[Rfam]
The record is a 118-nucleotide sequence from Mycolicibacterium smegmatis, which matches "Actinobacteria sRNA Ms_IGR-7" in Rfam.
RNA sequence: CGGAAGUGCCUUUCUGACCGUGGGCUGAUCGAAGUGUGGUAACUCCAAUCAUCCCAGCUCAAAGGGCACUUUCCUUAUAUCAACACCCUCCGACCAGGCGAUUCAUCGGUGGAUCGAG
Numbered sequence: 001c002g003g004a005a006g007u008g009c010c011u012u013u014c015u016g017a018c019c020g021u022g023g024g025c026u027g028a029u030c031g032a033a034g035u036g037u038g039g040u041a042a043c044u045c046c047a048a049u050c051a052u053c054c055c056a057g058c059u060c061a062a063a064g065g066g067c068a069c070u071u072u073c074c075u076u077a078u079a080u081c082a083a084c085a086c087c088c089u090c091c092g093a094c095c096a097g098g099c100g101a102u103u104c105a106u107c108g109g110u111g112g113a114u115c116g117a118g
Stems, first nucleotide, its partner, number of pairs: 002073012015061003019057001021056004026051004031046001033044003099116007

Background
Lineage of the source: Bacteria > Actinomycetes > Mycobacteriales > Mycobacterium > Mycolicibacterium smegmatis. The family has 14 seed sequences and 463 matches in Rfam 15.1. By type it is a small RNA.